[Rfam]
RNA sequence: UCACCGCUUCCGCCGCGACGAACCGGGGAACCACCGAGCAGCAUCGGGGUGAAUCCGCGCAAGCGGUAGGGCCUUCUUCCCGCCCGAAUCCGUCAGCUAACCCGGUAGGCGGCCAAGCGGAAGAAA
Numbered sequence: 001u002c003a004c005c006g007c008u009u010c011c012g013c014c015g016c017g018a019c020g021a022a023c024c025g026g027g028g029a030a031c032c033a034c035c036g037a038g039c040a041g042c043a044u045c046g047g048g049g050u051g052a053a054u055c056c057g058c059g060c061a062a063g064c065g066g067u068a069g070g071g072c073c074u075u076c077u078u079c080c081c082g083c084c085c086g087a088a089u090c091c092g093u094c095a096g097c098u099a100a101c102c103c104g105g106u107a108g109g110c111g112g113c114c115a116a117g118c119g120g121a122a123g124a125a126a
Base pairs, nucleotide, nucleotide: 002111004109005108009021010020022106023105024104025103026102027101032046047091048090049089055066056065057064058063069085070084071083072082